[Rfam]
RNA sequence: UUCGCGUUGCAUGACUGGCGGAAACGUGGGUCACCACAGGGGAGUGCAACGAUAGACAUGCCGGCCGCCUGGGCACUCGAA
Numbered sequence: 001u002u003c004g005c006g007u008u009g010c011a012u013g014a015c016u017g018g019c020g021g022a023a024a025c026g027u028g029g030g031u032c033a034c035c036a037c038a039g040g041g042g043a044g045u046g047c048a049a050c051g052a053u054a055g056a057c058a059u060g061c062c063g064g065c066c067g068c069c070u071g072g073g074c075a076c077u078c079g080a081a
Stems, first nucleotide, its partner, number of pairs: 005051008015041002017069005026037004059075004
RNA: ZMP/ZTP riboswitch aptamer (pfl RNA motif)